[Rfam]
RNA sequence: AGUAAAUUAAAUAGGCUACCAAAGACUAUAGGUGGAUUUUCCUUAAUUUCCUAUAUAGGAGCAAUAAUUAGAUUAUUAACUCUCCUUAUGUCUUUUUACAUAUGGAGAUUUUUUUAAUAUAUU
Numbered sequence: 001a002g003u004a005a006a007u008u009a010a011a012u013a014g015g016c017u018a019c020c021a022a023a024g025a026c027u028a029u030a031g032g033u034g035g036a037u038u039u040u041c042c043u044u045a046a047u048u049u050c051c052u053a054u055a056u057a058g059g060a061g062c063a064a065u066a067a068u069u070a071g072a073u074u075a076u077u078a079a080c081u082c083u084c085c086u087u088a089u090g091u092c093u094u095u096u097u098a099c100a101u102a103u104g105g106a107g108a109u110u111u112u113u114u115u116a117a118u119a120u121a122u123u
Base pairs, nucleotide, nucleotide: 028054029053030052031051032050034042035041036040081108082107083106084105085104087102088101089100090099
RNA: Ribosomal protein L10 leader
Organism: Helcococcus kunzii